Record summary: The record is a 132-nucleotide sequence from Molossus molossus, which matches "Small nucleolar RNA SNORA72" in Rfam. Its family is annotated with RNA processing and nucleolus in the Gene Ontology. Rfam classes the family as an H/ACA-box small nucleolar RNA. The family's consensus secondary structure was predicted with PFOLD. The match comes from Rfam's covariance-model search (143 bits). Rfam's curators write: U72 is a member of the H/ACA class of snoRNAs. The snoRNA gene is located in intron 4 of the ribosomal L30 protein gene in human, mouse and chicken. For this family Rfam cites "The family of box ACA small nucleolar RNAs is defined by an evolutionarily conserved secondary structure and ubiquitous sequence elements essential for RNA accumulation" (Ganot et al., Genes Dev, 1997).
RNA sequence: UUGAAAACAUUCUCGCUGUUCUGAUUUUGUAAUAAUCAGGGCAAGCUAAACAUUUGCUAUAUUAAGAUCAUGCAUGUGUCCUCAGACCUAGUUCUUUCCCUAGGUCUAGUUUUAUAAAUGCUGGUGAUAAGC
Numbered sequence: 001u002u003g004a005a006a007a008c009a010u011u012c013u014c015g016c017u018g019u020u021c022u023g024a025u026u027u028u029g030u031a032a033u034a035a036u037c038a039g040g041g042c043a044a045g046c047u048a049a050a051c052a053u054u055u056g057c058u059a060u061a062u063u064a065a066g067a068u069c070a071u072g073c074a075u076g077u078g079u080c081c082u083c084a085g086a087c088c089u090a091g092u093u094c095u096u097u098c099c100c101u102a103g104g105u106c107u108a109g110u111u112u113u114a115u116a117a118a119u120g121c122u123g124g125u126g127a128u129a130a131g132c
Stems, first nucleotide, its partner, number of pairs: 003057001005055001017043010067125004072121002082109001084107008